A member of the RNA family "c-di-GMP-I riboswitch aptamer" from Halobacillus yeomjeoni, 89 nucleotides long.
RNA sequence: UUCUCGAAAAGGCAGAGCAAGUGAAAGCUUGUGACGCAAAGCUACAGGGGCUAAGGUGAGUCAUCUCACUAAGCCAGCCAGUUACCGAA
Numbered sequence: 001u002u003c004u005c006g007a008a009a010a011g012g013c014a015g016a017g018c019a020a021g022u023g024a025a026a027g028c029u030u031g032u033g034a035c036g037c038a039a040a041g042c043u044a045c046a047g048g049g050g051c052u053a054a055g056g057u058g059a060g061u062c063a064u065c066u067c068a069c070u071a072a073g074c075c076a077g078c079c080a081g082u083u084a085c086c087g088a089a
Stems, first nucleotide, its partner, number of pairs: 012037002017032006040083004047079002049075003056069004

It scores 76 bits against the family's covariance model. About the family: GEMM was predicted in a large-scale screen for bacterial structured RNA regulatory elements. Its family is annotated with cyclic-di-GMP binding in the Gene Ontology. The source organism's lineage runs through Bacteria, Bacillati, Bacillota, Caryophanales and Halobacillus.